[Rfam]
RNA sequence: GAUGAACACCUAGAGGCUGAGGUGUUAACUUCGAUGCAAUCUUCCUACAACAAAUUUGUAAUUUCCUGCUUGUAUUACUGGAGAACAGGUAUGCAAGCCUCAAAAUUACAAGAUAAGA
Numbered sequence: 001g002a003u004g005a006a007c008a009c010c011u012a013g014a015g016g017c018u019g020a021g022g023u024g025u026u027a028a029c030u031u032c033g034a035u036g037c038a039a040u041c042u043u044c045c046u047a048c049a050a051c052a053a054a055u056u057u058g059u060a061a062u063u064u065c066c067u068g069c070u071u072g073u074a075u076u077a078c079u080g081g082a083g084a085a086c087a088g089g090u091a092u093g094c095a096a097g098c099c100u101c102a103a104a105a106u107u108a109c110a111a112g113a114u115a116a117g118a
Base pairs, nucleotide, nucleotide: 001032002031003028005026006025007024008023009022010021011020068098069097070096071095072094073093074092075091078088079087

Rfam assigns this 118-nucleotide sequence from Apostasia shenzhenica to the family "Small nucleolar RNA snoR104". The base pairs follow the family's consensus structure, which was predicted with WAR. A reference for the family is Marker et al. (2002), "Experimental RNomics: identification of 140 candidates for small non-messenger RNAs in the plant Arabidopsis thaliana", Curr Biol. The match comes from Rfam's covariance-model search (64 bits). The family's RNA type in Rfam is H/ACA-box small nucleolar RNA.